[Rfam]
RNA sequence: AUAUAAGCAAAAAUCUAUAUUUUAGGUUUAUUCAUUUAAUGAUAUAUGUGGUCUAUAAUAAAGACCAUGUGCAUCAUUAAAUGAAUGAAUCUAAAAUGUAGAUUUUUGCUUAUAA
Numbered sequence: 001a002u003a004u005a006a007g008c009a010a011a012a013a014u015c016u017a018u019a020u021u022u023u024a025g026g027u028u029u030a031u032u033c034a035u036u037u038a039a040u041g042a043u044a045u046a047u048g049u050g051g052u053c054u055a056u057a058a059u060a061a062a063g064a065c066c067a068u069g070u071g072c073a074u075c076a077u078u079a080a081a082u083g084a085a086u087g088a089a090u091c092u093a094a095a096a097u098g099u100a101g102a103u104u105u106u107u108g109c110u111u112a113u114a115a
Stems, first nucleotide, its partner, number of pairs: 002114006009107005015101011027089017049067004
Description: A member of the RNA family "MIR2593 microRNA precursor family" from Medicago truncatula, 115 nucleotides long. The family's consensus secondary structure was predicted with RNAalifold.